[Rfam]
RNA: ASpks TB sRNA
RNA sequence: CUUCAGCGAACCCAGCCACAGCGGCCGGUCCUCGGGGCGGCCCUGACCGUAGGUGGCGAGGACCGCCUGCGCCUC
Numbered sequence: 001c002u003u004c005a006g007c008g009a010a011c012c013c014a015g016c017c018a019c020a021g022c023g024g025c026c027g028g029u030c031c032u033c034g035g036g037g038c039g040g041c042c043c044u045g046a047c048c049g050u051a052g053g054u055g056g057c058g059a060g061g062a063c064c065g066c067c068u069g070c071g072c073c074u075c
Base pairs, nucleotide, nucleotide: 015025016024017023031071033069038065039064043060044059047056048055049054